[Rfam]
RNA: sok antitoxin (CssrC)
RNA sequence: GGGUGCUUAAGGCUUUCUGUCUUAAGUACAAAUGGACGAGGGACAGAAAGAGAAAAGCCCCGGGCAAUAUUUCUAUUAACCCGAGGCUAUCUCUCAACCCCAAACAAGUUGAGAAUAGCCGCUUACUCGCCGCAAGGCAAGGAGUAAAUGGCAUG
Numbered sequence: 001g002g003g004u005g006c007u008u009a010a011g012g013c014u015u016u017c018u019g020u021c022u023u024a025a026g027u028a029c030a031a032a033u034g035g036a037c038g039a040g041g042g043a044c045a046g047a048a049a050g051a052g053a054a055a056a057g058c059c060c061c062g063g064g065c066a067a068u069a070u071u072u073c074u075a076u077u078a079a080c081c082c083g084a085g086g087c088u089a090u091c092u093c094u095c096a097a098c099c100c101c102a103a104a105c106a107a108g109u110u111g112a113g114a115a116u117a118g119c120c121g122c123u124u125a126c127u128c129g130c131c132g133c134a135a136g137g138c139a140a141g142g143a144g145u146a147a148a149u150g151g152c153a154u155g
Stems, first nucleotide, its partner, number of pairs: 001061003005058004013050011026037002062082003066077004083122001085120003092114007127147001130144001